This 163-nucleotide sequence belongs to the Rfam family "RT-3 RNA". It is one of the family's seed sequences.

RNA sequence: AAUCGGAGACCCUAUACGCCUACGAGUUGGGCAAUUAUAUUCUCCGAGGGGUUCGCGCCUCGGCAAAAGCAUUAUAAUAUAUUAUUUAUGGAAAGCCGGAACAUAUCUUUUAACCACAAAGUGAGGAGGGUUUCAUAUCCUCCUCACGGGACCGGAAGGCGGU
Numbered sequence: 001a002a003u004c005g006g007a008g009a010c011c012c013u014a015u016a017c018g019c020c021u022a023c024g025a026g027u028u029g030g031g032c033a034a035u036u037a038u039a040u041u042c043u044c045c046g047a048g049g050g051g052u053u054c055g056c057g058c059c060u061c062g063g064c065a066a067a068a069g070c071a072u073u074a075u076a077a078u079a080u081a082u083u084a085u086u087u088a089u090g091g092a093a094a095g096c097c098g099g100a101a102c103a104u105a106u107c108u109u110u111u112a113a114c115c116a117c118a119a120a121g122u123g124a125g126g127a128g129g130g131u132u133u134c135a136u137a138u139c140c141u142c143c144u145c146a147c148g149g150g151a152c153c154g155g156a157a158g159g160c161g162g163u
Base pairs, nucleotide, nucleotide: 003047004046005045006044008042009041013039014038015037016035018032019031020030021029049059050058060099061098062097063096064095070090071089072088074086113163114162115161117159122156126145127141128140129139130138131137